[Rfam]
RNA sequence: CAUUCUUGUGCCUACUGAACUGGAUUCAGUGUGUAAAAAGCAAAACUGGCUCAGUCCAGCAGGAACAAGGG
Numbered sequence: 001c002a003u004u005c006u007u008g009u010g011c012c013u014a015c016u017g018a019a020c021u022g023g024a025u026u027c028a029g030u031g032u033g034u035a036a037a038a039a040g041c042a043a044a045a046c047u048g049g050c051u052c053a054g055u056c057c058a059g060c061a062g063g064a065a066c067a068a069g070g071g
Stems, first nucleotide, its partner, number of pairs: 003071004008066002011063003015059003019055005026049005
Shown here is a 71-nucleotide RNA from Neogobius melanostomus, a member of the family "mir-24 microRNA precursor family". Lineage of the source: Eukaryota > Actinopterygii > Euacanthomorphacea > Gobiaria > Neogobius. This family represents the microRNA (miRNA) mir-24 family. miRNAs are transcribed as ~70nt precursors (modelled here) and subsequently processed by the Dicer enzyme to give a ~22nt product. In this case the mature sequence comes from the 3' arm of the precursor.